Small nucleolar RNA SNORA38: a 113-nucleotide RNA sequence from Myotis lucifugus. It scores 104 bits against the family's covariance model. It is annotated as an H/ACA-box small nucleolar RNA. From the family's description: ACA38 is a member of the H/ACA class of snoRNA that guide the sites of modification of uridines to pseudouridines. Rfam links the family to the GO terms Cajal body, nucleolus and RNA processing.

RNA sequence: CCUACAAAGGCGUGUCUGUGGGUCCCUGUCUUUGGACACGUAAGAAAUGUGGACUUGGAGAAGUCUGGAGCCAGCUUGCUCCCUGCAGCCUCAAAAUCAACCAUCCCACAGAG
Numbered sequence: 001c002c003u004a005c006a007a008a009g010g011c012g013u014g015u016c017u018g019u020g021g022g023u024c025c026c027u028g029u030c031u032u033u034g035g036a037c038a039c040g041u042a043a044g045a046a047a048u049g050u051g052g053a054c055u056u057g058g059a060g061a062a063g064u065c066u067g068g069a070g071c072c073a074g075c076u077u078g079c080u081c082c083c084u085g086c087a088g089c090c091u092c093a094a095a096a097u098c099a100a101c102c103a104u105c106c107c108a109c110a111g112a113g
Stems, first nucleotide, its partner, number of pairs: 002049001011040007020026002051106003055103001073091002076088004